The family of this 236-nucleotide RNA sequence from Paenibacillus montanisoli is "c-di-AMP riboswitch aptamer (ydaO/yuaA leader)". Gene Ontology terms of the family: cyclic-di-AMP binding and regulation of gene expression. The source organism's lineage runs through Bacteria, Bacillati, Bacilli, Paenibacillaceae and Paenibacillus.
[Rfam]
RNA sequence: UCCAAUAACACGCUUAAUCUCCGAAUUUCGGAGAGCGGGGGAACCAAUUGUUGAAACUGUUUGUAUCACUGGCAUGGUACAGACAGCCAUAGACAUGAACUUCUUCUUGGGGUGAAUUUUGCGACCGGUGCAGCGAUUGUGAUACCACGAUUGUGAUACAUAGUGCCGUAAGUGAAUAGGGCGACUCUCUCGCCCGAAUCCGACAGCUAACCUCGCAAGCGCAUUUUAGAGAGAUC
Numbered sequence: 001u002c003c004a005a006u007a008a009c010a011c012g013c014u015u016a017a018u019c020u021c022c023g024a025a026u027u028u029c030g031g032a033g034a035g036c037g038g039g040g041g042a043a044c045c046a047a048u049u050g051u052u053g054a055a056a057c058u059g060u061u062u063g064u065a066u067c068a069c070u071g072g073c074a075u076g077g078u079a080c081a082g083a084c085a086g087c088c089a090u091a092g093a094c095a096u097g098a099a100c101u102u103c104u105u106c107u108u109g110g111g112g113u114g115a116a117u118u119u120u121g122c123g124a125c126c127g128g129u130g131c132a133g134c135g136a137u138u139g140u141g142a143u144a145c146c147a148c149g150a151u152u153g154u155g156a157u158a159c160a161u162a163g164u165g166c167c168g169u170a171a172g173u174g175a176a177u178a179g180g181g182c183g184a185c186u187c188u189c190u191c192g193c194c195c196g197a198a199u200c201c202g203a204c205a206g207c208u209a210a211c212c213u214c215g216c217a218a219g220c221g222c223a224u225u226u227u228a229g230a231g232a233g234a235u236c
Base pairs, nucleotide, nucleotide: 011221012220013219014218018034019033020032021031022030023029035216036215037214038213039212040211045109046108110201111200112199118176119175120174121173179195180194181193182192